This 89-nucleotide RNA from Candidatus Omnitrophus magneticus belongs to the Rfam family "c-di-GMP-I riboswitch aptamer".

RNA sequence: AGGACGAAAAGGCAAACUAUUUGAAAAGAUAGGACGCAAAAUCAUGGACCUCACGGCCUAACAAGGCACAAGGUUGCCAGAUUACCGAA
Numbered sequence: 001a002g003g004a005c006g007a008a009a010a011g012g013c014a015a016a017c018u019a020u021u022u023g024a025a026a027a028g029a030u031a032g033g034a035c036g037c038a039a040a041a042u043c044a045u046g047g048a049c050c051u052c053a054c055g056g057c058c059u060a061a062c063a064a065g066g067c068a069c070a071a072g073g074u075u076g077c078c079a080g081a082u083u084a085c086c087g088a089a
Base pairs, nucleotide, nucleotide: 012037013036017032018031019030020029021028022027040083041082042081043080045079046078047077048074049073050072056067057066058065